[Rfam]
RNA sequence: ACAAUGGUACUCCUGCCCAGCCACAACGGAACGUAAUGGGGGCAGCUCGGAGAGAUCCUCGGAGGGGUGCAAGACCCGUGA
Numbered sequence: 001a002c003a004a005u006g007g008u009a010c011u012c013c014u015g016c017c018c019a020g021c022c023a024c025a026a027c028g029g030a031a032c033g034u035a036a037u038g039g040g041g042g043c044a045g046c047u048c049g050g051a052g053a054g055a056u057c058c059u060c061g062g063a064g065g066g067g068u069g070c071a072a073g074a075c076c077c078g079u080g081a
Stems, first nucleotide, its partner, number of pairs: 012078001013045006046064003050060003065077003
This 81-nucleotide RNA sequence belongs to the Rfam family "pemK RNA". Rfam's curators put it in the seed alignment. By type it is a cis-regulatory element.